[Rfam]
RNA sequence: GGCCGAGGACGACCUCCCCCAGAUCGGGAUGCAGCACCGGGACGACCCGA
Numbered sequence: 001g002g003c004c005g006a007g008g009a010c011g012a013c014c015u016c017c018c019c020c021a022g023a024u025c026g027g028g029a030u031g032c033a034g035c036a037c038c039g040g041g042a043c044g045a046c047c048c049g050a
Stems, first nucleotide, its partner, number of pairs: 001020002005016004038049004